[Rfam]
Shown here is a 229-nucleotide sequence from Limnoraphis robusta, a member of the family "HNH endonuclease-associated RNA and ORF (HEARO) RNA".
A reference for the family is Weinberg et al. (2009), "Exceptional structured noncoding RNAs revealed by bacterial metagenome analysis", Nature.
The base pairs follow the family's consensus structure, which is taken from published work.
Taxonomically the source falls in Limnoraphis robusta (Bacteria, Bacillati, Oscillatoriales, Sirenicapillariaceae).

RNA sequence: GUCAACAACCCGCCGUUAAGUUCUAGGACUCUAACGGGGGCUUUAAAAAGCCCAAGUUGACCAGCCUAAGUGUCUAGCGCACUACGUUAGAGGUAAGUGUUAAAGUUCCUACCGGGGGAUGCGUAGCUAGUCCCCCGCUCUAGAACCAAGCAGUUAAACAGUCGCGUCGGGUCAGUGGUAGUGCUGAUUGGAAAGUACCGACCUCUAACAUUGGCGAAGCUCACUUUAC
Numbered sequence: 001g002u003c004a005a006c007a008a009c010c011c012g013c014c015g016u017u018a019a020g021u022u023c024u025a026g027g028a029c030u031c032u033a034a035c036g037g038g039g040g041c042u043u044u045a046a047a048a049a050g051c052c053c054a055a056g057u058u059g060a061c062c063a064g065c066c067u068a069a070g071u072g073u074c075u076a077g078c079g080c081a082c083u084a085c086g087u088u089a090g091a092g093g094u095a096a097g098u099g100u101u102a103a104a105g106u107u108c109c110u111a112c113c114g115g116g117g118g119a120u121g122c123g124u125a126g127c128u129a130g131u132c133c134c135c136c137g138c139u140c141u142a143g144a145a146c147c148a149a150g151c152a153g154u155u156a157a158a159c160a161g162u163c164g165c166g167u168c169g170g171g172u173c174a175g176u177g178g179u180a181g182u183g184c185u186g187a188u189u190g191g192a193a194a195g196u197a198c199c200g201a202c203c204u205c206u207a208a209c210a211u212u213g214g215c216g217a218a219g220c221u222c223a224c225u226u227u228a229c
Stems, first nucleotide, its partner, number of pairs: 001061006010040002013037002017033002041050003064215003068211001069083005086209009107144002113137008121225001125221004146191004151186004158182002161179005